A member of the RNA family "R2 RNA element" from Agrilus planipennis, 218 nucleotides long. Rfam classes the family as a cis-regulatory element. This family represents the 3' UTR region of the R2 retrotransposable element. This family is known to interact with the R2-encoded reverse transcriptase in a reaction known as target primed reverse transcription (TPRT). Rfam 15.1 lists 3,698 matches to the family in 74 species. The match comes from Rfam's covariance-model search (48 bits).
[Rfam]
RNA sequence: ACCCAUCAAAAACUAAAUCUUUAAAGAGCGUAAUGCUGUCUCAACAAAUUGUUUUGAUUUAACUGAUCUGGCUGAAGAGGACCUUAAUUGGUCCUAGAACGGCCUGAGGUAGAGGGAUUUUAGUCGGUAGGUCCGAGAACUUCUUCCUCGGGAAUCCGACACUACCCAGUUGUACGGACGGCUGGGUGUCUUUUGAAGAUUUCCCCUCUUCCACGAAA
Numbered sequence: 001a002c003c004c005a006u007c008a009a010a011a012a013c014u015a016a017a018u019c020u021u022u023a024a025a026g027a028g029c030g031u032a033a034u035g036c037u038g039u040c041u042c043a044a045c046a047a048a049u050u051g052u053u054u055u056g057a058u059u060u061a062a063c064u065g066a067u068c069u070g071g072c073u074g075a076a077g078a079g080g081a082c083c084u085u086a087a088u089u090g091g092u093c094c095u096a097g098a099a100c101g102g103c104c105u106g107a108g109g110u111a112g113a114g115g116g117a118u119u120u121u122a123g124u125c126g127g128u129a130g131g132u133c134c135g136a137g138a139a140c141u142u143c144u145u146c147c148u149c150g151g152g153a154a155u156c157c158g159a160c161a162c163u164a165c166c167c168a169g170u171u172g173u174a175c176g177g178a179c180g181g182c183u184g185g186g187u188g189u190c191u192u193u194u195g196a197a198g199a200u201u202u203c204c205c206c207u208c209u210u211c212c213a214c215g216a217a218a
Stems, first nucleotide, its partner, number of pairs: 038082002040079003088217002091214002108212002111209002114205003123160005132152006138145002162188001164187005